[Rfam]
RNA sequence: AAGCGAGGACGACCUCCCCCUGCAGGGACAGAUGUUCGGGACGGCCCGA
Numbered sequence: 001a002a003g004c005g006a007g008g009a010c011g012a013c014c015u016c017c018c019c020c021u022g023c024a025g026g027g028a029c030a031g032a033u034g035u036u037c038g039g040g041a042c043g044g045c046c047c048g049a
Base pairs, nucleotide, nucleotide: 003018005016006015007014008013036049037048038047039046040045
The family of this 49-nucleotide RNA from Paroceanicella profunda is "Guanidine-II riboswitch aptamer (mini-ykkC)". The organism belongs to Paroceanicella, within Bacteria. A reference for the family is Weinberg et al. (2007), "Identification of 22 candidate structured RNAs in bacteria using the CMfinder comparative genomics pipeline", Nucleic Acids Res. The match comes from Rfam's covariance-model search (37 bits). The base pairs follow the family's consensus structure, which is taken from published work.